Shown here is a 50-nucleotide sequence, a member of the family "eL15-Euryarchaeota ribosomal protein leader".

RNA sequence: GCGGGAUACGUCCCGCAGGAAUGUGGCCCCUUCAAAGGCUGAACCGUGAA
Numbered sequence: 001g002c003g004g005g006a007u008a009c010g011u012c013c014c015g016c017a018g019g020a021a022u023g024u025g026g027c028c029c030c031u032u033c034a035a036a037g038g039c040u041g042a043a044c045c046g047u048g049a050a
Base pairs, nucleotide, nucleotide: 001016002015003014004013005012018045019044025040026039027038028037
The literature on the family includes a 2020 paper in BMC Microbiol by Eckert and Weinberg, "Discovery of 20 novel ribosomal leader candidates in bacteria and archaea". The family's consensus secondary structure is taken from published work.